[Rfam]
RNA sequence: UACGCGGGGUAUAACGACAGUAGUUCAAGUGUCGUUAUGCAUCAUUGGCCAUAACAAAUUAUCUAAUUUGGAAUAGGGACCUGCGACCUGUACGAAGGCCGAGCGUCGGUAGCCAUUCCGACUAGUAGGACUAGUACAAAUAGGUCAACUGGUUGAGCAGGUGAGUGUGCUGCAGCGGCUAAGCGGUGAGUACACCGUAUUCGUCAACAGGUGCUACUGGAAAGGAUCACCCACUAGCGAUGCCUGUGUGGACGAGGACAUGUCCAAGCCAAUGUUAUCAGUAGCGGGGGUCGUUACUGAGAAAGCUGCCCAGAAUGGGUAGUUGCACAUACAGUCUGAUAGGAUGCCGGCGGAUGCCCUGUAUUUUGACCAGUAUAAAUAUUAUCCGUUGUAAAGCAU
Numbered sequence: 001u002a003c004g005c006g007g008g009g010u011a012u013a014a015c016g017a018c019a020g021u022a023g024u025u026c027a028a029g030u031g032u033c034g035u036u037a038u039g040c041a042u043c044a045u046u047g048g049c050c051a052u053a054a055c056a057a058a059u060u061a062u063c064u065a066a067u068u069u070g071g072a073a074u075a076g077g078g079a080c081c082u083g084c085g086a087c088c089u090g091u092a093c094g095a096a097g098g099c100c101g102a103g104c105g106u107c108g109g110u111a112g113c114c115a116u117u118c119c120g121a122c123u124a125g126u127a128g129g130a131c132u133a134g135u136a137c138a139a140a141u142a143g144g145u146c147a148a149c150u151g152g153u154u155g156a157g158c159a160g161g162u163g164a165g166u167g168u169g170c171u172g173c174a175g176c177g178g179c180u181a182a183g184c185g186g187u188g189a190g191u192a193c194a195c196c197g198u199a200u201u202c203g204u205c206a207a208c209a210g211g212u213g214c215u216a217c218u219g220g221a222a223a224g225g226a227u228c229a230c231c232c233a234c235u236a237g238c239g240a241u242g243c244c245u246g247u248g249u250g251g252a253c254g255a256g257g258a259c260a261u262g263u264c265c266a267a268g269c270c271a272a273u274g275u276u277a278u279c280a281g282u283a284g285c286g287g288g289g290g291u292c293g294u295u296a297c298u299g300a301g302a303a304a305g306c307u308g309c310c311c312a313g314a315a316u317g318g319g320u321a322g323u324u325g326c327a328c329a330u331a332c333a334g335u336c337u338g339a340u341a342g343g344a345u346g347c348c349g350g351c352g353g354a355u356g357c358c359c360u361g362u363a364u365u366u367u368g369a370c371c372a373g374u375a376u377a378a379a380u381a382u383u384a385u386c387c388g389u390u391g392u393a394a395a396g397c398a399u
Base pairs, nucleotide, nucleotide: 009040010039011038012037013036014035015034016033017032085146086145087144088143089142092135093134097132098131099129100128105122106121107120108119109118148374149373150372151371152370153369154368155364157362158361159360160359161358162333163332165330166329167328168327169326170325172275173274174273177270178269179268180267183198184197185196186195187194188193201255202254203253204252205251208246209245210244211243212242213238214237215236216235218233219232220231256265257264258263278300279299280298281297282296283295284294285293286292287291306322307321308320309319310318311317334345335344336343337342348391349390350389351388352387353386354385355384
Source information:
Shown here is a 399-nucleotide sequence from Orthopestivirus australiaense, a member of the family "Pestivirus internal ribosome entry site (IRES) including 5'UTR SLI". The literature on the family includes a 2000 paper in RNA by Kolupaeva et al., "Ribosomal binding to the internal ribosomal entry site of classical swine fever virus". The source organism's lineage runs through Viruses, Kitrinoviricota, Flasuviricetes, Pestiviridae and Orthopestivirus australiaense. The family is grouped with related families in Rfam's "IRES1 clan".